RNA sequence: CCUUCUUUGAUGAUCAUCAAUCAUGACUUUCGUUCUUCUGAGUCUGCUGAAGCAAUGUAUUGAUCUGAGAAGG
Number, nucleotide and partner (000 for none) at each position: 001c073002c072003u071004u000005c069006u000007u000008u000009g000010a000011u000012g000013a000014u000015c000016a000017u000018c000019a000020a000021u000022c000023a000024u000025g000026a000027c000028u000029u000030u000031c000032g000033u000034u000035c000036u000037u000038c000039u000040g000041a000042g000043u000044c000045u000046g000047c000048u000049g000050a000051a000052g000053c000054a000055a000056u000057g000058u000059a000060u000061u000062g000063a000064u000065c000066u000067g000068a000069g005070a000071a003072g002073g001
A member of the RNA family "Small nucleolar RNA SNORD59" from Eleutherodactylus coqui, 73 nucleotides long.